About this RNA
Shown here is a 131-nucleotide RNA from Cannabis sativa, a member of the family "Small nucleolar RNA snoR74". The family's consensus secondary structure was predicted with WAR. NCBI's taxonomy places the organism under Eukaryota, Streptophyta, Tracheophyta, Euphyllophyta, Cannabis. A search with the family's covariance model found it, with a score of 70 bits. The family's RNA type in Rfam is H/ACA-box small nucleolar RNA. The literature on the family includes a 2002 paper in Curr Biol by Marker et al., "Experimental RNomics: identification of 140 candidates for small non-messenger RNAs in the plant Arabidopsis thaliana".
[Rfam]
RNA sequence: AUAAAAGCAGGGGCCUCUUGCAUUUGUGAAUGGGCCUCUUGCAAAUGUCAGGAAAGUCAUUUGGCGUUGUUAUUGGAUGAACCAAUGUUUUGUUUAUUGUAGCUGAAGGUUCAUUAAAUGUUGCAACUUUU
Numbered sequence: 001a002u003a004a005a006a007g008c009a010g011g012g013g014c015c016u017c018u019u020g021c022a023u024u025u026g027u028g029a030a031u032g033g034g035c036c037u038c039u040u041g042c043a044a045a046u047g048u049c050a051g052g053a054a055a056g057u058c059a060u061u062u063g064g065c066g067u068u069g070u071u072a073u074u075g076g077a078u079g080a081a082c083c084a085a086u087g088u089u090u091u092g093u094u095u096a097u098u099g100u101a102g103c104u105g106a107a108g109g110u111u112c113a114u115u116a117a118a119u120g121u122u123g124c125a126a127c128u129u130u131u
Base pairs, nucleotide, nucleotide: 005048007046011037012036014034015033016032064124065123066122068120069119070118071117078113079112080111081110082109083108